The family of this 71-nucleotide RNA sequence from Spinacia oleracea is "Small nucleolar RNA U49". A reference for the family is Brown et al. (2001), "Multiple snoRNA gene clusters from Arabidopsis", RNA. A search with the family's covariance model found it, with a score of 46 bits. Rfam links the family to the GO terms RNA processing and nucleolus. Pairs were carried over by alignment from the consensus structure, which was predicted with CMfinder.

[Rfam]
RNA sequence: UCCCAAUGAUGAAGAAUUCCCAUCAAAGAUAGGAAGUGCCGUCUGACACUAUAAACAGCAGAAUCGAAGGU
Numbered sequence: 001u002c003c004c005a006a007u008g009a010u011g012a013a014g015a016a017u018u019c020c021c022a023u024c025a026a027a028g029a030u031a032g033g034a035a036g037u038g039c040c041g042u043c044u045g046a047c048a049c050u051a052u053a054a055a056c057a058g059c060a061g062a063a064u065c066g067a068a069g070g071u
Base pairs, nucleotide, nucleotide: 014065015064033052035050036049037048038047